Rfam assigns this 72-nucleotide RNA to the family "skipping-rope RNA".
Pairs were carried over by alignment from the consensus structure, which is taken from published work.
Rfam classes the family as a small RNA.
RNA sequence: AGAAUUAGAGGACGGAACGGGCAGCCGUCGCCCUAAGCUCGGAGAUGUGGGAGUGUCGCCCCACCUAAGGCA
Numbered sequence: 001a002g003a004a005u006u007a008g009a010g011g012a013c014g015g016a017a018c019g020g021g022c023a024g025c026c027g028u029c030g031c032c033c034u035a036a037g038c039u040c041g042g043a044g045a046u047g048u049g050g051g052a053g054u055g056u057c058g059c060c061c062c063a064c065c066u067a068a069g070g071c072a
Base pairs, nucleotide, nucleotide: 002071005068006067007066008065011029012028013027014026015025020057021056022055023054031042047064048063049062050061051060